RNA sequence: GCAGGUAUAGUUCAUCGGUAGAACGCUAGCUUCCCAAGCUGGAGAGACGGGUUCGAUUCCCGCUACCUGCU
Numbered sequence: 001g002c003a004g005g006u007a008u009a010g011u012u013c014a015u016c017g018g019u020a021g022a023a024c025g026c027u028a029g030c031u032u033c034c035c036a037a038g039c040u041g042g043a044g045a046g047a048c049g050g051g052u053u054c055g056a057u058u059c060c061c062g063c064u065a066c067c068u069g070c071u
Stems, first nucleotide, its partner, number of pairs: 001070007010024004026042005048062004
Source information:
A member of the RNA family "tRNA" from Blautia sp. OF03-15BH, 71 nucleotides long. Rfam classes the family as a transfer RNA. A search with the family's covariance model found it, with a score of 60 bits.